[Rfam]
RNA: Small nucleolar RNA snoR14
RNA sequence: GUGAAGUGACGAUACAAAUUCAUAUCUUCAAUUCACUGACUUACUGUGUGAUGUUACUCUGAAUUGGCUGUGGUUCUGAUCGC
Numbered sequence: 001g002u003g004a005a006g007u008g009a010c011g012a013u014a015c016a017a018a019u020u021c022a023u024a025u026c027u028u029c030a031a032u033u034c035a036c037u038g039a040c041u042u043a044c045u046g047u048g049u050g051a052u053g054u055u056a057c058u059c060u061g062a063a064u065u066g067g068c069u070g071u072g073g074u075u076c077u078g079a080u081c082g083c
Stems, first nucleotide, its partner, number of pairs: 001083004